[Rfam]
RNA sequence: CCGUGCUGCCCUCCUUGGGCGUUUCCUCCCUAGACUUCGGGCCGCUCGCGAGGGCGGCCUUUCUUUUGUCCAGG
Dot-bracket structure: .......((((.....))))...................((((((((....))))))))...............
The record is a 74-nucleotide RNA sequence from Methylobacterium sp. 4-46, which matches "Makes More Granules Regulator RNA (mmgR)" in Rfam. The pairing is the family consensus, mapped onto this sequence. Its Rfam clan is "suhB sRNA clan". It is annotated as a small RNA. Its family is annotated with DNA-templated transcription, termination, protein binding and response to nitrogen compound in the Gene Ontology. Rfam's curators put it in the seed alignment.